RNA sequence: CUUUAAUAAUGGUGCUUGUAGUCUGAAAAAACUCAGAAAUUGCCAGUGUUCUCAUCAGCUUUGUCUCUUUCUAAUUAUGAGACUGGAGUUAAACAAGAACUCUACAUUG
Numbered sequence: 001c002u003u004u005a006a007u008a009a010u011g012g013u014g015c016u017u018g019u020a021g022u023c024u025g026a027a028a029a030a031a032c033u034c035a036g037a038a039a040u041u042g043c044c045a046g047u048g049u050u051c052u053c054a055u056c057a058g059c060u061u062u063g064u065c066u067c068u069u070u071c072u073a074a075u076u077a078u079g080a081g082a083c084u085g086g087a088g089u090u091a092a093a094c095a096a097g098a099a100c101u102c103u104a105c106a107u108u109g
Base pairs, nucleotide, nucleotide: 045103046102048100049099050098051097057090058089059088060087061086062085064082065081066080067079
Dot-bracket structure: ............................................((.((((.....((((((.((((...........))))..))))))......)))).))......